[Rfam]
The family of this 141-nucleotide sequence from Pseudomonas oryzae is "proV RNA". NCBI's taxonomy places the organism under Bacteria, Pseudomonadota, Pseudomonadales, Pseudomonadaceae, Pseudomonas.
RNA sequence: CGUCGCUGCCGCCACCGAACAGGGCCGGCAGACCGGAGCCCACCCCUCCGGACCGAGGAAUAAAUACGGCUGGCUUCCCUCCUUGCGGGCGCCAGCCCAACAAGAAAUUUCGGAUGUACGUGCACUCCGCGGGGAACACCC
Numbered sequence: 001c002g003u004c005g006c007u008g009c010c011g012c013c014a015c016c017g018a019a020c021a022g023g024g025c026c027g028g029c030a031g032a033c034c035g036g037a038g039c040c041c042a043c044c045c046c047u048c049c050g051g052a053c054c055g056a057g058g059a060a061u062a063a064a065u066a067c068g069g070c071u072g073g074c075u076u077c078c079c080u081c082c083u084u085g086c087g088g089g090c091g092c093c094a095g096c097c098c099a100a101c102a103a104g105a106a107a108u109u110u111c112g113g114a115u116g117u118a119c120g121u122g123c124a125c126u127c128c129g130c131g132g133g134g135a136a137c138a139c140c141c
Base pairs, nucleotide, nucleotide: 006031007030008029009028010027011026013024015022033051034050035049036048037047038046121138122137125134126133127132